[Rfam]
RNA sequence: AAAGUAAACUGGAUAAUCGCUAAUGUCGUAUAACAGGGAUUAGAGGAAAGUCCGAGCUCCACAGGGCAAGGGGCUGGGUAACACCCAGGCGGAGUGAUCCGACAGACAGUGCCACAGAAAAGACACAGCCGAUGGCUUUUACCGGAGCACAGGCAAUGGUGAAAAGGUGGAGUAAGAGCCCACCGCAAUUCUGGCGACAGAAUUGGCAGGGUAAACCUCUCCUGGAGCAAGAUCAAAUAGGAAAGCGUCUGAGAGUAGCCCGCUCGAUGUUUUCGGGUUGAUCGCAAGAGGUGCACGGUAACGAGCAUCCCAGAUGAAUGAUUAUCGCUCCUGAAGCGGAGAACAGAACUCGGCUUAUAGGUUUGCUUUAGUA
Numbered sequence: 001a002a003a004g005u006a007a008a009c010u011g012g013a014u015a016a017u018c019g020c021u022a023a024u025g026u027c028g029u030a031u032a033a034c035a036g037g038g039a040u041u042a043g044a045g046g047a048a049a050g051u052c053c054g055a056g057c058u059c060c061a062c063a064g065g066g067c068a069a070g071g072g073g074c075u076g077g078g079u080a081a082c083a084c085c086c087a088g089g090c091g092g093a094g095u096g097a098u099c100c101g102a103c104a105g106a107c108a109g110u111g112c113c114a115c116a117g118a119a120a121a122g123a124c125a126c127a128g129c130c131g132a133u134g135g136c137u138u139u140u141a142c143c144g145g146a147g148c149a150c151a152g153g154c155a156a157u158g159g160u161g162a163a164a165a166g167g168u169g170g171a172g173u174a175a176g177a178g179c180c181c182a183c184c185g186c187a188a189u190u191c192u193g194g195c196g197a198c199a200g201a202a203u204u205g206g207c208a209g210g211g212u213a214a215a216c217c218u219c220u221c222c223u224g225g226a227g228c229a230a231g232a233u234c235a236a237a238u239a240g241g242a243a244a245g246c247g248u249c250u251g252a253g254a255g256u257a258g259c260c261c262g263c264u265c266g267a268u269g270u271u272u273u274c275g276g277g278u279u280g281a282u283c284g285c286a287a288g289a290g291g292u293g294c295a296c297g298g299u300a301a302c303g304a305g306c307a308u309c310c311c312a313g314a315u316g317a318a319u320g321a322u323u324a325u326c327g328c329u330c331c332u333g334a335a336g337c338g339g340a341g342a343a344c345a346g347a348a349c350u351c352g353g354c355u356u357a358u359a360g361g362u363u364u365g366c367u368u369u370a371g372u373a
Base pairs, nucleotide, nucleotide: 001369002368003367004366005365006364007363008362009361010360011358012326013325014324015323016322017321018320020043021042022041023040024039026037027036048356049355050354052353053352054351055350056349057227058226059225060224064261065260066259067258069223070222071221072220073219074088075087076086077085078084089103090101091100092099093098104218105217109216110215111212112211113210126158127157128154129153130152133149134148166184167183168182169181170180185207186205187204188203189202190201191200192199193198231283232282233281234280241274242273243272244271245270246269253265254264255263256262290309291308292307293306294305296303297302

The family of this 373-nucleotide sequence from Candidatus Vecturithrix granuli is "Bacterial RNase P class A". The base pairs follow the family's consensus structure, which is taken from published work. The match comes from Rfam's covariance-model search (318 bits).